Notes
Rfam assigns this 293-nucleotide RNA sequence from Geotrypetes seraphini to the family "7SK RNA". The family's consensus secondary structure is taken from published work.
[Rfam]
RNA sequence: GGAUGUGAGGGAGAUCUGGCUGCGACAUCUGUCACCCCAUUGAUCGCUAGGGUUGAUUCGGCUGAUCUGGCUGGAUAGAUGAAUGUCCCCUUCCUCCCUCACCGCUCCAUGCUUGUCCCUCCCGAAGUUGUGCGCUCGGUCGAAGAUGACCUCCCAACAGAAGUACCGUUCUUUGGUCAAGGGUAUACCAGUAGCUGCGCUCUCCUGCUAGAACCUCCAAACAAGCUCAAGGUCCAUUUGUAGGAGAACAUGGGGUAGUCGGGCUCCAGGGAUUAUUUGGGAUUAUUUUCCCU
Numbered sequence: 001g002g003a004u005g006u007g008a009g010g011g012a013g014a015u016c017u018g019g020c021u022g023c024g025a026c027a028u029c030u031g032u033c034a035c036c037c038c039a040u041u042g043a044u045c046g047c048u049a050g051g052g053u054u055g056a057u058u059c060g061g062c063u064g065a066u067c068u069g070g071c072u073g074g075a076u077a078g079a080u081g082a083a084u085g086u087c088c089c090c091u092u093c094c095u096c097c098c099u100c101a102c103c104g105c106u107c108c109a110u111g112c113u114u115g116u117c118c119c120u121c122c123c124g125a126a127g128u129u130g131u132g133c134g135c136u137c138g139g140u141c142g143a144a145g146a147u148g149a150c151c152u153c154c155c156a157a158c159a160g161a162a163g164u165a166c167c168g169u170u171c172u173u174u175g176g177u178c179a180a181g182g183g184u185a186u187a188c189c190a191g192u193a194g195c196u197g198c199g200c201u202c203u204c205c206u207g208c209u210a211g212a213a214c215c216u217c218c219a220a221a222c223a224a225g226c227u228c229a230a231g232g233u234c235c236a237u238u239u240g241u242a243g244g245a246g247a248a249c250a251u252g253g254g255g256u257a258g259u260c261g262g263g264c265u266c267c268a269g270g271g272a273u274u275a276u277u278u279g280g281g282a283u284u285a286u287u288u289u290c291c292c293u
Stems, first nucleotide, its partner, number of pairs: 001108003005102007013093002018090002024087005030081004035074002037070003042067004046062003117163001119160002122139004127135002140157001142155001194264003200258002203255005215246004221241005272286002275283002
About the family: 7SK was discovered as an abundant small nuclear RNA in the mid-70s but a possible function has only recently been suggested. The literature on the family includes a 1991 paper in Mol Cell Biol by Wassarman and Steitz, "Structural analyses of the 7SK ribonucleoprotein (RNP), the most abundant human small RNP of unknown function". The family's RNA type in Rfam is non-coding RNA gene.